[Rfam]
abiF RNA: a 39-nucleotide RNA sequence from Chara braunii. About the family: Actinobacteria, Bacteroidetes, Clostridia, Proteobacteria, one Clostridia phage. By type it is a small RNA. The family has 126 seed sequences and 282 matches in Rfam 15.1. Lineage of the source: Eukaryota > Streptophyta > Streptophytina > Charales > Chara.

RNA sequence: CCUACCACACCUCUCAACAAUGUGCAAAAGAGGGUAGGA
Numbered sequence: 001c002c003u004a005c006c007a008c009a010c011c012u013c014u015c016a017a018c019a020a021u022g023u024g025c026a027a028a029a030g031a032g033g034g035u036a037g038g039a
Stems, first nucleotide, its partner, number of pairs: 001038006008024003